[Rfam]
RNA: MIR9563 microRNA precursor family
RNA sequence: GGAAGUUGAGAAACUGUUUCUUAACUUUUAACUAAAAAAACUAAGAACCGGUUCUUAAAUAAAGACUUUAAAAACUGGUUUUUAAUCUUUUUAGUUAAAAGUUAAGAAACAAUUUUUUAACUUCC
Numbered sequence: 001g002g003a004a005g006u007u008g009a010g011a012a013a014c015u016g017u018u019u020c021u022u023a024a025c026u027u028u029u030a031a032c033u034a035a036a037a038a039a040a041c042u043a044a045g046a047a048c049c050g051g052u053u054c055u056u057a058a059a060u061a062a063a064g065a066c067u068u069u070a071a072a073a074a075c076u077g078g079u080u081u082u083u084a085a086u087c088u089u090u091u092u093a094g095u096u097a098a099a100a101g102u103u104a105a106g107a108a109a110c111a112a113u114u115u116u117u118u119a120a121c122u123u124c125c
Stems, first nucleotide, its partner, number of pairs: 001125013015111024042084006